Bacterial large signal recognition particle RNA: a 264-nucleotide sequence from Gemella sp. zg-570. The family is grouped with related families in Rfam's "SRP clan". The organism belongs to Gemella, within Bacteria.
[Rfam]
RNA sequence: AUUUGCUAGGUGGGGAGUUAGCGGUGCCCUGUACUUGCAAUCCGCUUUAGCAAGGCUGAAUACCAAGAUUCGGGUAGUUUGCGUGAUGACGAGUUUAGCACGUGGUGUUGAGAUUGAGGCAUCUUAUGACGUAAUAAUUAUGAACCAUGUCAGGUCAGGAAUGAAGCAGCAUUAAGUAAUUUUUUACGGGUGUGAGUAUUUGUCAAGGUUGAGCUGGCGACUAAACUAACGGUUGUGUUAGCUAUUCAACUCUUGGUUGCAUAU
Numbered sequence: 001a002u003u004u005g006c007u008a009g010g011u012g013g014g015g016a017g018u019u020a021g022c023g024g025u026g027c028c029c030u031g032u033a034c035u036u037g038c039a040a041u042c043c044g045c046u047u048u049a050g051c052a053a054g055g056c057u058g059a060a061u062a063c064c065a066a067g068a069u070u071c072g073g074g075u076a077g078u079u080u081g082c083g084u085g086a087u088g089a090c091g092a093g094u095u096u097a098g099c100a101c102g103u104g105g106u107g108u109u110g111a112g113a114u115u116g117a118g119g120c121a122u123c124u125u126a127u128g129a130c131g132u133a134a135u136a137a138u139u140a141u142g143a144a145c146c147a148u149g150u151c152a153g154g155u156c157a158g159g160a161a162u163g164a165a166g167c168a169g170c171a172u173u174a175a176g177u178a179a180u181u182u183u184u185u186a187c188g189g190g191u192g193u194g195a196g197u198a199u200u201u202g203u204c205a206a207g208g209u210u211g212a213g214c215u216g217g218c219g220a221c222u223a224a225a226c227u228a229a230c231g232g233u234u235g236u237g238u239u240a241g242c243u244a245u246u247c248a249a250c251u252c253u254u255g256g257u258u259g260c261a262u263a264u
Base pairs, nucleotide, nucleotide: 001264002263004261005260006259009057010056011055012030013029014028015027017025018024019023034054035053036052037051038050063256064255065254066253067252068251072247073246074245075244076243078241079240081238082237083236084235085234086233087232092227094225095224096223097222098221102218103217104215105214106213112210113209114208115207118204119203120202123196124195125194126193127190130188131187132186133185134184136181137180138179139178140177141176147172148171149170150169155164156163157162
It is annotated as a non-coding RNA gene.